[Rfam]
RNA sequence: UGACUGUGAUGAUGAAAGAGAUAUUUGCUAGCUGAGAGUUCAUGCUGACAAGACCUUACCACCAAGAUCUCUGAGUUA
Numbered sequence: 001u002g003a004c005u006g007u008g009a010u011g012a013u014g015a016a017a018g019a020g021a022u023a024u025u026u027g028c029u030a031g032c033u034g035a036g037a038g039u040u041c042a043u044g045c046u047g048a049c050a051a052g053a054c055c056u057u058a059c060c061a062c063c064a065a066g067a068u069c070u071c072u073g074a075g076u077u078a
Base pairs, nucleotide, nucleotide: 001078002077003076004075
RNA: Small nucleolar RNA SNORD24